[Rfam]
RNA sequence: CUCCGCGAAAUCUAUUGAGGUAGAUCGUCGUUCGAUUACCGCCGGAGGUAGAGCACCGGAAGGGCUAGGGGGACCCAAAGUCCUACCAAACCCUACCGAACUCCGAAUGCCGGUGAGUACAGGGCGGCAGACAGACAGUGGGUGCUAAGGUCCAUUGUCGAGAGGGAAACAGCCCAGACCACCAGCUAAGGCCCCCAAAUGAUGACUAAGUGGGAAAGCAUGUGAGACGGCCAAAACAACCAGGAGGUUGGCUUAGAAGCAGCCAUCCUUUAAAGAAAGCGUAAUAGCUCACUGGUCUAAUAGCUGUUUUGCGGCGAAAAUGUAACGGGGCUCAAGUCAUCUGCCGAAGCUGUGGAUGUAUUCGCAAGAAUACGUGGUAGCGGAGCGUUCCGUAAGCCUGCGAAGGGAUAUCCGUGAGGGGUCCUGGAGGUAUCGGAAGUGCGAAU
Numbered sequence: 001c002u003c004c005g006c007g008a009a010a011u012c013u014a015u016u017g018a019g020g021u022a023g024a025u026c027g028u029c030g031u032u033c034g035a036u037u038a039c040c041g042c043c044g045g046a047g048g049u050a051g052a053g054c055a056c057c058g059g060a061a062g063g064g065c066u067a068g069g070g071g072g073a074c075c076c077a078a079a080g081u082c083c084u085a086c087c088a089a090a091c092c093c094u095a096c097c098g099a100a101c102u103c104c105g106a107a108u109g110c111c112g113g114u115g116a117g118u119a120c121a122g123g124g125c126g127g128c129a130g131a132c133a134g135a136c137a138g139u140g141g142g143u144g145c146u147a148a149g150g151u152c153c154a155u156u157g158u159c160g161a162g163a164g165g166g167a168a169a170c171a172g173c174c175c176a177g178a179c180c181a182c183c184a185g186c187u188a189a190g191g192c193c194c195c196c197a198a199a200u201g202a203u204g205a206c207u208a209a210g211u212g213g214g215a216a217a218g219c220a221u222g223u224g225a226g227a228c229g230g231c232c233a234a235a236a237c238a239a240c241c242a243g244g245a246g247g248u249u250g251g252c253u254u255a256g257a258a259g260c261a262g263c264c265a266u267c268c269u270u271u272a273a274a275g276a277a278a279g280c281g282u283a284a285u286a287g288c289u290c291a292c293u294g295g296u297c298u299a300a301u302a303g304c305u306g307u308u309u310u311g312c313g314g315c316g317a318a319a320a321u322g323u324a325a326c327g328g329g330g331c332u333c334a335a336g337u338c339a340u341c342u343g344c345c346g347a348a349g350c351u352g353u354g355g356a357u358g359u360a361u362u363c364g365c366a367a368g369a370a371u372a373c374g375u376g377g378u379a380g381c382g383g384a385g386c387g388u389u390c391c392g393u394a395a396g397c398c399u400g401c402g403a404a405g406g407g408a409u410a411u412c413c414g415u416g417a418g419g420g421g422u423c424c425u426g427g428a429g430g431u432a433u434c435g436g437a438a439g440u441g442c443g444a445a446u
Stems, first nucleotide, its partner, number of pairs: 001385006011024005026130001027128007036121001040115006051104001052102002057098003061094004068087002070084005134159010164175003179355004184351003190345003199342001201341006218315002222312010239296005245269003250264003270274001275290001279288002356375008386441001388438005396431003405425005411420003
Dot-bracket structure: ((((((....(((((....))))).((((((((..(...((((((.....(((...(((.((((...(((((((.....))))).))...)))).)))..)).).....)))))).....)))))))).)...((((((((((......))))))))))....(((......)))...((((.(((...(((......(.((((((...........((..((((((((((.......(((((.(((..(((.........)))..)))(...)(...((......)).).)))))......)))))))))).))....................))))))))))...)))))))((((((((....))))))))....))))))(.(((((...(((......(((((.(((....))))))))...)))..)))))..).....
RNA: Bacterial large subunit ribosomal RNA, nucleotides 791 to 1236
Organism: Acetobacteraceae bacterium AT-5844